[Rfam]
RNA sequence: CCCGCGGAACUGCUGGCGCCCUAUAUCGGCGACAUCGCGGCUGAAGGGAUAAGCAAAACGCUGCGCACGGGUUCCACUUUCCUGCGUAAAGGCCUGCUCCGUCAACAGCGCUAUGCUGCCGAGGUGCUGACCGAAGAGUGGCGUAUGGCGCCUGGGCCUUUAGAAGUCGCCUGGUUUGCAGAAGAGACCGCGGCAGUUGAGCGCGCAGUUGAUGCGUUAACCAAACGGCUUGAAAAACUGGAGGGCAAAUGA
Numbered sequence: 001c002c003c004g005c006g007g008a009a010c011u012g013c014u015g016g017c018g019c020c021c022u023a024u025a026u027c028g029g030c031g032a033c034a035u036c037g038c039g040g041c042u043g044a045a046g047g048g049a050u051a052a053g054c055a056a057a058a059c060g061c062u063g064c065g066c067a068c069g070g071g072u073u074c075c076a077c078u079u080u081c082c083u084g085c086g087u088a089a090a091g092g093c094c095u096g097c098u099c100c101g102u103c104a105a106c107a108g109c110g111c112u113a114u115g116c117u118g119c120c121g122a123g124g125u126g127c128u129g130a131c132c133g134a135a136g137a138g139u140g141g142c143g144u145a146u147g148g149c150g151c152c153u154g155g156g157c158c159u160u161u162a163g164a165a166g167u168c169g170c171c172u173g174g175u176u177u178g179c180a181g182a183a184g185a186g187a188c189c190g191c192g193g194c195a196g197u198u199g200a201g202c203g204c205g206c207a208g209u210u211g212a213u214g215c216g217u218u219a220a221c222c223a224a225a226c227g228g229c230u231u232g233a234a235a236a237a238c239u240g241g242a243g244g245g246c247a248a249a250u251g252a
Stems, first nucleotide, its partner, number of pairs: 001244002005240001006082004012054003016050001019047002022044001027040001029038003063074001065072002084215004089210001092206002095203001100143005115128001117126003148179003152174004157169001160166002186198003190194001221228002